Small nucleolar RNA R44/J54/Z268 family: an 84-nucleotide RNA from Ipomoea nil. The organism belongs to Ipomoea, within Eukaryota. Rfam classes the family as a C/D-box small nucleolar RNA. The family's consensus secondary structure was predicted with PFOLD.
RNA sequence: UGUGCAUAUGAAGAUGAACAGACAGGGACAUCAGAUCUCCAAAGAGAAUGAUGAUUUGUCAGAUGGGAAUCUCUCUGAUGCACA
Numbered sequence: 001u002g003u004g005c006a007u008a009u010g011a012a013g014a015u016g017a018a019c020a021g022a023c024a025g026g027g028a029c030a031u032c033a034g035a036u037c038u039c040c041a042a043a044g045a046g047a048a049u050g051a052u053g054a055u056u057u058g059u060c061a062g063a064u065g066g067g068a069a070u071c072u073c074u075c076u077g078a079u080g081c082a083c084a
Base pairs, nucleotide, nucleotide: 002083003082004081005080006079